[Rfam]
This 564-nucleotide part of an RNA from Croceibacter atlanticus belongs to the Rfam family "Bacterial small subunit ribosomal RNA". Its family is annotated with ribosome and structural constituent of ribosome in the Gene Ontology. The organism belongs to Croceibacter atlanticus, within Bacteria. The base pairs follow the family's consensus structure, which is taken from published work.
RNA sequence: ACGAUGGAGAGUUUGAUCCUGGCUCAGGAUGAACGCUAGCGGCAGGCCUAACACAUGCAAGUCGAACGGCAGCGGGAAGGAGCUUGCUCCUUUGCCGGCGAGUGGCGCACGGGUGCGUAACGCGUAUACAACCUACCUUAUACAGGGGUAUAGCCCAGGGAAACUUGGAUUAACACCCCAUAGUAAUAUGUUUUGGCAUCAUUACAUAUUUAAAACUACGGUGGUAUAAGAUGGGUAUGCGUCCCAUUAGCUUGUUGGUGUGGUAACGGCACACCAAGGCAACGAUGGGUAGGGGCCCUGAGAGGGGGAUCCCCCACACUGGUACUGAGACACGGACCAGACUCCUACGGGAGGCAGCAGUGAGGAAUAUUGGACAAUGGGCGGGAGCCUGAUCCAGCCAUGCCGCGUGCAGGAAGACUGCCCUAUGGGUUGUAAACUGCUUUUAUACGGGAAGAAACCCACCUACGUGUAGGUGGCUGACGGUACCGUAAGAAUAAGGACCGGCUAACUCCGUGCCAGCAGCCGCGGUAAUACGGAGGGUCCGAGCGUUAUCCGGAAUCAUUG
Number, nucleotide and partner (000 for none) at each position: 001a000002c000003g000004a000005u000006g000007g000008a000009g025010a024011g023012u022013u021014u000015g000016a000017u000018c000019c000020u000021g013022g012023c011024u010025c009026a000027g554028g553029a552030u551031g000032a550033a549034c548035g547036c546037u545038a000039g406040c405041g404042g403043c402044a401045g399046g398047c364048c000049u000050a000051a000052c362053a361054c360055a000056u359057g358058c357059a000060a000061g106062u105063c104064g000065a000066a103067c102068g000069g099070c098071a000072g000073c000074g000075g000076g093077a092078a091079g090080g089081a088082g087083c000084u000085u000086g000087c082088u081089c080090c079091u078092u077093u076094g000095c000096c000097g000098g070099c069100g000101a000102g067103u066104g063105g062106c061107g000108c000109a000110c000111g000112g000113g317114u316115g315116c000117g000118u000119a000120a000121c000122g242123c241124g240125u239126a238127u237128a236129c235130a000131a000132c234133c233134u000135a000136c000137c230138u229139u228140a227141u226142a225143c224144a000145g179146g178147g177148g176149u000150a000151u000152a000153g170154c000155c168156c167157a166158g165159g164160g000161a000162a000163a000164c159165u158166u157167g156168g155169a000170u153171u000172a000173a000174c000175a000176c148177c147178c146179c145180a000181u000182a000183g000184u000185a210186a209187u208188a207189u206190g205191u204192u000193u000194u201195g200196g000197c000198a000199u000200c195201a194202u000203u000204a191205c190206a189207u188208a187209u186210u185211u000212a000213a000214a000215a222216c221217u000218a000219c000220g000221g216222u215223g000224g143225u142226a141227u140228a139229a138230g137231a000232u000233g133234g132235g129236u128237a127238u126239g125240c124241g123242u122243c289244c288245c287246a000247u000248u000249a000250g280251c279252u278253u000254g000255u277256u276257g275258g274259u273260g272261u271262g270263g000264u000265a000266a000267c000268g000269g000270c262271a261272c260273a259274c258275c257276a256277a255278g252279g251280c250281a000282a000283c000284g000285a000286u000287g245288g244289g243290u000291a000292g314293g313294g312295g311296c307297c306298c305299u304300g000301a000302g000303a000304g299305g298306g297307g296308g000309a000310u000311c295312c294313c293314c292315c115316a114317c113318a000319c340320u339321g338322g337323u336324a000325c000326u000327g000328a000329g000330a000331c000332a000333c000334g000335g000336a323337c322338c321339a320340g319341a000342c353343u352344c351345c350346u000347a000348c000349g000350g345351g344352a343353g342354g000355c000356a000357g058358c057359a056360g054361u053362g052363a000364g047365g000366a000367a000368u000369a000370u396371u000372g395373g394374a393375c000376a000377a000378u391379g390380g389381g388382c387383g000384g000385g000386a000387g382388c381389c380390u379391g378392a000393u374394c373395c372396a370397g000398c046399c045400a000401u044402g043403c042404c041405g040406c039407g000408u000409g440410c439411a438412g437413g000414a000415a000416g000417a000418c000419u000420g430421c429422c428423c000424u000425a000426u000427g000428g422429g421430u420431u000432g000433u000434a000435a000436a000437c412438u411439g410440c409441u000442u000443u000444u000445a000446u490447a489448c488449g487450g486451g000452a000453a000454g481455a000456a000457a000458c000459c000460c475461a474462c473463c000464u000465a000466c000467g000468u000469g000470u000471a000472g000473g462474u461475g460476g000477c000478u000479g000480a000481c454482g000483g000484u000485a000486c450487c449488g448489u447490a446491a000492g000493a000494a000495u000496a000497a000498g543499g542500a541501c540502c539503g000504g000505c000506u000507a000508a000509c538510u537511c536512c535513g534514u000515g000516c000517c000518a000519g526520c525521a000522g000523c000524c000525g520526c519527g000528g000529u000530a000531a000532u000533a000534c513535g512536g511537a510538g509539g502540g501541u500542c499543c498544g000545a037546g036547c035548g034549u033550u032551a030552u029553c028554c027555g000556g000557a000558a000559u000560c000561a000562u000563u000564g000